[Rfam]
Antisense RNA which regulates isiA expression: a 172-nucleotide RNA sequence from Synechococcus sp. KORDI-100. A search with the family's covariance model found it, with a score of 70 bits. The family has 308 seed sequences and 3,397 matches in Rfam 15.1.
RNA sequence: GAUAACCCCAGACCAUGCCCAAAUCUAUCGUUGGCUCGACUUUUCUUACAGCUCCAAUCGCUGUGUCAUAGAUCCCAUGUCGUUUGGCCCAUUCCACAAAAGCAAUCACGCCCAGACCAAGAAAAAUGAGGUGAUGGCCAAGGAUGAAAGUCAGUUUUUUGGGAUCGUCCCA
Numbered sequence: 001g002a003u004a005a006c007c008c009c010a011g012a013c014c015a016u017g018c019c020c021a022a023a024u025c026u027a028u029c030g031u032u033g034g035c036u037c038g039a040c041u042u043u044u045c046u047u048a049c050a051g052c053u054c055c056a057a058u059c060g061c062u063g064u065g066u067c068a069u070a071g072a073u074c075c076c077a078u079g080u081c082g083u084u085u086g087g088c089c090c091a092u093u094c095c096a097c098a099a100a101a102g103c104a105a106u107c108a109c110g111c112c113c114a115g116a117c118c119a120a121g122a123a124a125a126a127u128g129a130g131g132u133g134a135u136g137g138c139c140a141a142g143g144a145u146g147a148a149a150g151u152c153a154g155u156u157u158u159u160u161g162g163g164a165u166c167g168u169c170c171c172a
Stems, first nucleotide, its partner, number of pairs: 130169006138163002141160002